[Rfam]
RNA sequence: AAAGAUUUUGUUGAAAUACGUCGUAUAAUCUUGGGGAUAUGGCCCAAAAGUUUCUACCAGGCUACCGUAAAUUAGCUUGACUACGAGGUAUAACAGAUAAUGA
Numbered sequence: 001a002a003a004g005a006u007u008u009u010g011u012u013g014a015a016a017u018a019c020g021u022c023g024u025a026u027a028a029u030c031u032u033g034g035g036g037a038u039a040u041g042g043c044c045c046a047a048a049a050g051u052u053u054c055u056a057c058c059a060g061g062c063u064a065c066c067g068u069a070a071a072u073u074a075g076c077u078u079g080a081c082u083a084c085g086a087g088g089u090a091u092a093a094c095a096g097a098u099a100a101u102g103a
Stems, first nucleotide, its partner, number of pairs: 018089002021086005029049001031047005058079007
The record is a 103-nucleotide RNA sequence from Bacillus sp. HNG, which matches "Purine riboswitch aptamer" in Rfam. Rfam links the family to the GO term purine nucleobase biosynthetic process. About the family: Riboswitches are metabolite binding domains within certain messenger RNAs that serve as precision sensors for their corresponding targets. Allosteric rearrangement of mRNA structure is mediated by ligand binding, and this results in modulation of gene expression.